[Rfam]
The family of this 113-nucleotide RNA from Actinoplanes friuliensis is "SAM (S-adenosyl methionine) riboswitch aptamer".
SAM-IV is a mRNA element that regulates gene expression via direct sensing of S-adenosylmethionine (SAM or AdoMet). SAM-IV riboswitches share conserved nucleotide positions with the previously described SAM-I riboswitches sequence analysis and molecular recognition experiments suggest that SAM-I and SAM-IV riboswitches share similar ligand binding sites, but have different scaffolds.
Clan: SAM clan.
The family's consensus secondary structure is taken from published work.
RNA sequence: GGUCAUGAGUGCCAGCGCACAGCCCCGGCUUGCUGGCCGGCAACCCUCCGCUCGCGGGCGGGGUGCUCCGGGUGACGACCUGGCCGCGCAUACCUGCCCGGCAAGCCGCCGGC
Number, nucleotide and partner (000 for none) at each position: 001g080002g079003u078004c077005a000006u000007g000008a000009g038010u000011g037012c036013c035014a034015g033016c032017g000018c000019a000020c000021a030022g029023c000024c000025c000026c000027g000028g000029c022030u021031u000032g016033c015034u014035g013036g012037c011038c009039g067040g066041c065042a000043a000044c063045c062046c061047u000048c058049c057050g000051c000052u000053c000054g000055c000056g000057g049058g048059c000060g000061g046062g045063g044064u000065g041066c040067u039068c000069c000070g000071g000072g000073u000074g000075a000076c000077g004078a003079c002080c001081u000082g000083g102084c101085c100086g099087c000088g097089c096090a095091u000092a000093c000094c000095u090096g089097c088098c000099c086100g085101g084102c083103a000104a000105g000106c000107c000108g000109c000110c000111g000112g000113c000